[Rfam]
RNA: Small Cajal body specific RNA 1
RNA sequence: AUGCACCAGAUACACGCCUGACAGUCCACUUGGUCCCAGAGGUGUUGAACACUUUUGGGACUUUCUAUGGCUGCAUGGCUUCAAAUGGUGCAAGAACAUCAUCAGCCCUGACAUUUAAGCUUUUCAGUGGAAAGCAACACUGUAUGAGUUAUGGCUCAGAGGCACAGAC
Numbered sequence: 001a002u003g004c005a006c007c008a009g010a011u012a013c014a015c016g017c018c019u020g021a022c023a024g025u026c027c028a029c030u031u032g033g034u035c036c037c038a039g040a041g042g043u044g045u046u047g048a049a050c051a052c053u054u055u056u057g058g059g060a061c062u063u064u065c066u067a068u069g070g071c072u073g074c075a076u077g078g079c080u081u082c083a084a085a086u087g088g089u090g091c092a093a094g095a096a097c098a099u100c101a102u103c104a105g106c107c108c109u110g111a112c113a114u115u116u117a118a119g120c121u122u123u124u125c126a127g128u129g130g131a132a133a134g135c136a137a138c139a140c141u142g143u144a145u146g147a148g149u150u151a152u153g154g155c156u157c158a159g160a161g162g163c164a165c166a167g168a169c
Stems, first nucleotide, its partner, number of pairs: 003091006016079003022073005032062004036057001038055004105163003125142005143160001145158005